A member of the RNA family "Small nucleolar RNA U6-53/MBII-28" from Electrophorus electricus, 111 nucleotides long. The pairing is the family consensus, mapped onto this sequence. A search with the family's covariance model found it, with a score of 68 bits. The family's RNA type in Rfam is C/D-box small nucleolar RNA. A reference for the family is Huttenhofer et al. (2001), "RNomics: an experimental approach that identifies 201 candidates for novel, small, non-messenger RNAs in mouse", EMBO J. Gene Ontology terms of the family: nucleolus and RNA processing.
RNA sequence: UUCCUGUGAUGAGUUUGCCAUGCUAAUACUGAUAUGCCAGACUGACUGUGUGUCUCUGGGCAUAAGUGAGUUCAACUCAACUUCUCACACUCGCAGUGUGAUCUGAGGAAA
Number, nucleotide and partner (000 for none) at each position: 001u110002u109003c108004c107005u000006g000007u000008g000009a000010u000011g000012a000013g000014u000015u000016u000017g000018c000019c000020a000021u000022g000023c000024u000025a000026a000027u000028a000029c000030u000031g000032a000033u000034a000035u000036g000037c000038c000039a000040g000041a000042c000043u000044g054045a053046c052047u000048g000049u000050g000051u000052g046053u045054c044055u000056c000057u000058g000059g000060g000061c000062a000063u000064a000065a000066g000067u000068g000069a000070g000071u000072u000073c000074a000075a000076c000077u000078c000079a000080a000081c000082u000083u000084c000085u000086c000087a000088c000089a000090c000091u000092c000093g000094c000095a000096g000097u000098g000099u000100g000101a000102u000103c000104u000105g000106a000107g004108g003109a002110a001111a000